Source information: The record is an 85-nucleotide RNA sequence from Chanos chanos, which matches "Small nucleolar RNA SNORD60" in Rfam. Rfam links the family to the GO terms nucleolus and RNA processing. NCBI's taxonomy places the organism under Eukaryota, Metazoa, Eumetazoa, Craniata, Chanos. Clan: SNORD60 clan. A reference for the family is Kiss-Laszlo et al. (1996), "Site-specific ribose methylation of preribosomal RNA: a novel function for small nucleolar RNAs", Cell.
RNA sequence: AGCCCCUGAUGAAUAUUUUACUUUUUCUGACACCUCGUAUGAACACUGCCUAGCAGUGCCUGAUUAUCAAUGCAAUCUGAGGCUU
Numbered sequence: 001a002g003c004c005c006c007u008g009a010u011g012a013a014u015a016u017u018u019u020a021c022u023u024u025u026u027c028u029g030a031c032a033c034c035u036c037g038u039a040u041g042a043a044c045a046c047u048g049c050c051u052a053g054c055a056g057u058g059c060c061u062g063a064u065u066a067u068c069a070a071u072g073c074a075a076u077c078u079g080a081g082g083c084u085u
Stems, first nucleotide, its partner, number of pairs: 001084004045057005
Dot-bracket structure: ((((........................................(((((...))))).......................)))).
Rfam 15.1 lists 825 matches to the family in 373 species. The family's RNA type in Rfam is C/D-box small nucleolar RNA.